This 86-nucleotide sequence from Cycloclasticus sp. symbiont of Poecilosclerida sp. N belongs to the Rfam family "SAH (S-adenosyl-L-homocysteine) riboswitch aptamer". Pairs were carried over by alignment from the consensus structure, which is taken from published work. For this family Rfam cites "Riboswitches that sense S-adenosylhomocysteine and activate genes involved in coenzyme recycling" (Wang et al., Mol Cell, 2008). The source organism's lineage runs through Bacteria, Pseudomonadati, Pseudomonadota, Gammaproteobacteria and Cycloclasticus.
RNA sequence: UUGAAUAAGGAACGCUGCGCCGGGUUACCCCUGUUAGGCUUAUUCAAGAAUGAUCAUUUUAUUAUAAUCAACGGCGUUCAUUAUUA
Numbered sequence: 001u002u003g004a005a006u007a008a009g010g011a012a013c014g015c016u017g018c019g020c021c022g023g024g025u026u027a028c029c030c031c032u033g034u035u036a037g038g039c040u041u042a043u044u045c046a047a048g049a050a051u052g053a054u055c056a057u058u059u060u061a062u063u064a065u066a067a068u069c070a071a072c073g074g075c076g077u078u079c080a081u082u083a084u085u086a
Stems, first nucleotide, its partner, number of pairs: 002046007021033004